[Rfam]
RNA sequence: CGGGAGAAAAUCCCGCAGGAAUGUGGCCCAUAAGGGCUGAACCGUAAA
Dot-bracket structure: (((((.....)))))..((.....(((((....)))))...)).....
Numbered sequence: 001c002g003g004g005a006g007a008a009a010a011u012c013c014c015g016c017a018g019g020a021a022u023g024u025g026g027c028c029c030a031u032a033a034g035g036g037c038u039g040a041a042c043c044g045u046a047a048a
Stems, first nucleotide, its partner, number of pairs: 001015005018043002025038005

The record is a 48-nucleotide RNA sequence from Candidatus Methanoperedens nitratireducens, which matches "eL15-Euryarchaeota ribosomal protein leader" in Rfam. The family's consensus secondary structure is taken from published work. The literature on the family includes a 2020 paper in BMC Microbiol by Eckert and Weinberg, "Discovery of 20 novel ribosomal leader candidates in bacteria and archaea".